[Rfam]
RNA sequence: CGAUGAGGUAGAGGUUGCAUAGCAUAAGAGUAAACUACUGGAGGGUGACUCCCGUUGAUAGUUGUUGAAAGGAUGCUUUGCCGAAGUGAAAUAGUCUGUCAAACUAUUUUGCUGGGGUUAUCUUGAAAAAGGAUAACACUGUCAUUAUGUCCGGAGCGAACGGAAAACAUAAUGGAGGGCUACUGAUCGG
Numbered sequence: 001c002g003a004u005g006a007g008g009u010a011g012a013g014g015u016u017g018c019a020u021a022g023c024a025u026a027a028g029a030g031u032a033a034a035c036u037a038c039u040g041g042a043g044g045g046u047g048a049c050u051c052c053c054g055u056u057g058a059u060a061g062u063u064g065u066u067g068a069a070a071g072g073a074u075g076c077u078u079u080g081c082c083g084a085a086g087u088g089a090a091a092u093a094g095u096c097u098g099u100c101a102a103a104c105u106a107u108u109u110u111g112c113u114g115g116g117g118u119u120a121u122c123u124u125g126a127a128a129a130a131g132g133a134u135a136a137c138a139c140u141g142u143c144a145u146u147a148u149g150u151c152c153g154g155a156g157c158g159a160a161c162g163g164a165a166a167a168c169a170u171a172a173u174g175g176a177g178g179g180c181u182a183c184u185g186a187u188c189g190g
Stems, first nucleotide, its partner, number of pairs: 007184005017081003021077005033066003037062004085113011114140002117137008142175009
This 190-nucleotide RNA sequence from Sutcliffiella cohnii belongs to the Rfam family "Lysine riboswitch aptamer". A search with the family's covariance model found it, with a score of 129 bits.